Nucleotides: 178
Stems, first nucleotide, its partner, number of pairs: 003175001005173011017162003032148003035144003052126003056122004063116001066115007077104002083097003
Number, partner (000 for none) and nucleotide at each position: 001000u002000u003175u004000u005173u006172u007171c008170u009169a010168g011167a012166a013165u014164a015163u016000g017162c018161g019160u020000a021000a022000g023000g024000c025000u026000u027000u028000a029000a030000u031000u032148u033147g034146a035144a036143c037142c038000u039000a040000c041000a042000u043000u044000a045000c046000u047000a048000a049000a050000u051000c052126g053125g054124g055000a056122g057121u058120u059119u060000a061000a062000u063116a064000u065000u066115u067114a068113g069112a070111u071110g072109u073000g074000u075000a076000u077104a078103u079000g080000u081000a082000a083097c084096c085095u086000u087000u088000g089000a090000g091000a092000c093000a094000u095085a096084g097083g098000a099000a100000g101000u102000g103078a104077u105000a106000g107000a108000u109072g110071c111070a112069u113068c114067u115066g116063u117000g118000a119059g120058a121057a122056c123000a124054c125053c126052c127000a128000c129000c130000u131000a132000u133000c134000g135000a136000g137000a138000g139000a140000u141000a142037g143036g144035u145000g146034u147033c148032a149000a150000a151000u152000u153000a154000a155000g156000u157000u158000c159000a160019g161018c162017g163015g164014u165013a166012u167011u168010u169009u170008g171007g172006a173005g174000u175003a176000u177000c178000a